[Rfam]
RNA sequence: CCCCCCAAGCCUCUCGGACAGCCCGCUGUCAUGAUGCUCAAACCGGGGGGU
Numbered sequence: 001c002c003c004c005c006c007a008a009g010c011c012u013c014u015c016g017g018a019c020a021g022c023c024c025g026c027u028g029u030c031a032u033g034a035u036g037c038u039c040a041a042a043c044c045g046g047g048g049g050g051u
Stems, first nucleotide, its partner, number of pairs: 001050006008038003

Overview: Rfam assigns this 51-nucleotide sequence from Sphaerotilus hippei to the family "abiF RNA". The match comes from Rfam's covariance-model search (42 bits). Actinobacteria, Bacteroidetes, Clostridia, Proteobacteria, one Clostridia phage. Pairs were carried over by alignment from the consensus structure, which is taken from published work. Rfam 15.1 lists 282 matches to the family in 274 species.